[Rfam]
Record summary:
The family of this 78-nucleotide RNA from Sphaerobacter thermophilus is "c-di-GMP-I-GGC riboswitch aptamer". The match comes from Rfam's covariance-model search (65 bits). Taxonomically the source falls in Sphaerobacter thermophilus (Bacteria, Thermomicrobiota, Sphaerobacterineae, Sphaerobacter). The base pairs follow the family's consensus structure, which is taken from published work.

RNA sequence: GCUGAAAAGGGCAAACCCGUCGCGAGGCGGGGGCGCAAAGCCAUGGACCUCCACCCGGAGGCCGCCAGGCUGCCAGCA
Numbered sequence: 001g002c003u004g005a006a007a008a009g010g011g012c013a014a015a016c017c018c019g020u021c022g023c024g025a026g027g028c029g030g031g032g033g034c035g036c037a038a039a040g041c042c043a044u045g046g047a048c049c050u051c052c053a054c055c056c057g058g059a060g061g062c063c064g065c066c067a068g069g070c071u072g073c074c075a076g077c078a
Stems, first nucleotide, its partner, number of pairs: 003075002011036002016031006034064001039071004044067003048061002